[Rfam]
RNA sequence: CUGGCAUCGGUGCUGGGGAGCAGUCCCCGGGGCGGGGCUCCACUCUGGCCCCUCCUGGGGAUGGCACUCUCCCUCAGGGCCCG
Number, nucleotide and partner (000 for none) at each position: 001c000002u000003g081004g080005c079006a000007u078008c077009g000010g075011u000012g073013c000014u000015g070016g069017g068018g067019a000020g065021c064022a000023g062024u000025c060026c059027c058028c057029g056030g055031g054032g000033c000034g051035g050036g049037g000038c047039u000040c000041c000042a000043c000044u000045c000046u000047g038048g000049c036050c035051c034052c000053u000054c031055c030056u029057g028058g027059g026060g025061a000062u023063g000064g021065c020066a000067c018068u017069c016070u015071c000072c000073c012074u000075c010076a000077g008078g007079g005080c004081c003082c000083g000
A member of the RNA family "mir-1343 microRNA precursor family" from Carlito syrichta, 83 nucleotides long. The organism belongs to Carlito, within Eukaryota. Rfam links the family to the GO terms miRNA-mediated post-transcriptional gene silencing and RISC complex. The family has 8 seed sequences and 238 matches in Rfam 15.1.